[Rfam]
This 166-nucleotide sequence from Paenibacillus dendritiformis belongs to the Rfam family "FMN riboswitch aptamer (RFN element)". The base pairs follow the family's consensus structure, which is taken from published work.

Nucleotides: 166
Stems, first nucleotide, its partner, number of pairs: 006161005017029003031146002033136002035085004089111002116132005138149003
Number, partner (000 for none) and nucleotide at each position: 001000c002000u003000g004000a005000a006161c007160c008159u009158u010157c011000a012000g013000g014000g015000c016000a017029g018028g019027g020000u021000g022000c023000a024000a025000u026000u027019c028018c029017c030000g031146a032145c033136c034135g035085g036084c037083g038082g039000u040000g041000a042000u043000g044000g045000a046000a047000c048000g049000g050000u051000a052000g053000c054000g055000c056000a057000g058000u059000u060000g061000a062000c063000g064000g065000c066000u067000a068000u069000c070000g071000u072000c073000u074000u075000c076000c077000u078000u079000a080000g081000u082038c083037c084036g085035u086000g087000a088000c089111c090110c091000g092000g093000g094000c095000g096000a097000a098000c099000u100000u101000c102000g103000u104000u105000c106000g107000a108000a109000c110090g111089g112000u113000g114000g115000a116132u117131c118130u119129g120128g121000u122000g123000c124000a125000a126000c127000u128120c129119c130118a131117g132116a133000g134000c135034c136033g137000a138149c139148a140147g141000u142000a143000u144000a145032g146031u147140c148139u149138g150000g151000a152000u153000g154000g155000g156000a157010g158009a159008a160007g161006g162000g163000c164000g165000u166000c